[Rfam]
RNA sequence: UGCCUCGUUUUUCAGCAGAUAGGCACAACUUACCAUGUGUCUGAAUCGAAGAGCGUGGCUAGAGAACCGACAGGCUAUGCUUUCCUCACUGCAUAGUUGGUUGCAGUGGUGACAAUGAGGCUUGUAACAUGU
Numbered sequence: 001u002g003c004c005u006c007g008u009u010u011u012u013c014a015g016c017a018g019a020u021a022g023g024c025a026c027a028a029c030u031u032a033c034c035a036u037g038u039g040u041c042u043g044a045a046u047c048g049a050a051g052a053g054c055g056u057g058g059c060u061a062g063a064g065a066a067c068c069g070a071c072a073g074g075c076u077a078u079g080c081u082u083u084c085c086u087c088a089c090u091g092c093a094u095a096g097u098u099g100g101u102u103g104c105a106g107u108g109g110u111g112a113c114a115a116u117g118a119g120g121c122u123u124g125u126a127a128c129a130u131g132u
Base pairs, nucleotide, nucleotide: 002059003058004057006055007054008053021042022041023040024039025038026037027036070125071124072123073122074121084111086109087108088107089106
Shown here is a 132-nucleotide sequence from Semnornis frantzii, a member of the family "Small nucleolar RNA SNORA1". The family has 29 seed sequences and 1,282 matches in Rfam 15.1. About the family: ACA1 is a member of the H/ACA class of snoRNA that guide the sites of modification of uridines to pseudouridines. Gene Ontology terms of the family: RNA processing and nucleolus.